[Rfam]
RNA sequence: UGGCGCUUGAGGCUUUUUGCCUCACCGUCGGCUUGUUGUGAGGCAGAAAGAAGAAAGCCCCGAAGGUAAUUUUUCAAUUAACCACGAGGCGAUCCAAUGCUAGACACAUUCAGAUUAGCCUCUUACCACGCUUUGUGCAAGGAGAAGAAGGCUAUG
Numbered sequence: 001u002g003g004c005g006c007u008u009g010a011g012g013c014u015u016u017u018u019g020c021c022u023c024a025c026c027g028u029c030g031g032c033u034u035g036u037u038g039u040g041a042g043g044c045a046g047a048a049a050g051a052a053g054a055a056a057g058c059c060c061c062g063a064a065g066g067u068a069a070u071u072u073u074u075c076a077a078u079u080a081a082c083c084a085c086g087a088g089g090c091g092a093u094c095c096a097a098u099g100c101u102a103g104a105c106a107c108a109u110u111c112a113g114a115u116u117a118g119c120c121u122c123u124u125a126c127c128a129c130g131c132u133u134u135g136u137g138c139a140a141g142g143a144g145a146a147g148a149a150g151g152c153u154a155u156g
Stems, first nucleotide, its partner, number of pairs: 002060002005058004013050013062085001065083001067080005086122005091116004096110004126151002
Background:
This 156-nucleotide RNA from Buttiauxella agrestis belongs to the Rfam family "sok antitoxin (CssrC)". NCBI's taxonomy places the organism under Bacteria, Pseudomonadota, Enterobacteriaceae, Buttiauxella, Buttiauxella agrestis. The family has 91 seed sequences and 305 matches in Rfam 15.1. Also identified in Shigella as CssrC.